The record is a 62-nucleotide RNA sequence from Aliiroseovarius sediminilitoris, which matches "L2-Alphaproteobacteria ribosomal protein leader" in Rfam. On this family, see Eckert and Weinberg, BMC Microbiol 2020: "Discovery of 20 novel ribosomal leader candidates in bacteria and archaea".
[Rfam]
RNA sequence: GGGGACCUUCGGGGCCCUUUAACUCAGGCAGGUGACUGCCUCAAAGCAACGGAAGACAGAAA
Numbered sequence: 001g002g003g004g005a006c007c008u009u010c011g012g013g014g015c016c017c018u019u020u021a022a023c024u025c026a027g028g029c030a031g032g033u034g035a036c037u038g039c040c041u042c043a044a045a046g047c048a049a050c051g052g053a054a055g056a057c058a059g060a061a062a
Stems, first nucleotide, its partner, number of pairs: 001018004006014003027040005
Overview
The match comes from Rfam's covariance-model search (64 bits). Pairs were carried over by alignment from the consensus structure, which is taken from published work.